This 176-nucleotide sequence from Actinobacillus delphinicola belongs to the Rfam family "Lysine riboswitch aptamer". The match comes from Rfam's covariance-model search (122 bits). NCBI's taxonomy places the organism under Bacteria, Pseudomonadati, Gammaproteobacteria, Pasteurellaceae, Actinobacillus. The base pairs follow the family's consensus structure, which is taken from published work.

RNA sequence: UACAUCUGUAGAGGUUGCGAUUGUUAUUAGUAAUUUUUAAGAGUGGAUAACGUUGACGAGAAGUAAAAGGAACAAUCGCCGAGAUUAUUUGGAAGUCAUUCCAAAUGGUUGGGGGCAUCACCGAAAGGUCUGUCACUGUCAUAGUCUACAUACAACUAUGGAGCGCUACUGAUUAG
Numbered sequence: 001u002a003c004a005u006c007u008g009u010a011g012a013g014g015u016u017g018c019g020a021u022u023g024u025u026a027u028u029a030g031u032a033a034u035u036u037u038u039a040a041g042a043g044u045g046g047a048u049a050a051c052g053u054u055g056a057c058g059a060g061a062a063g064u065a066a067a068a069g070g071a072a073c074a075a076u077c078g079c080c081g082a083g084a085u086u087a088u089u090u091g092g093a094a095g096u097c098a099u100u101c102c103a104a105a106u107g108g109u110u111g112g113g114g115g116c117a118u119c120a121c122c123g124a125a126a127g128g129u130c131u132g133u134c135a136c137u138g139u140c141a142u143a144g145u146c147u148a149c150a151u152a153c154a155a156c157u158a159u160g161g162a163g164c165g166c167u168a169c170u171g172a173u174u175a176g
Stems, first nucleotide, its partner, number of pairs: 006171001008169004017079009033064006083110012111137002114134004121127001139161007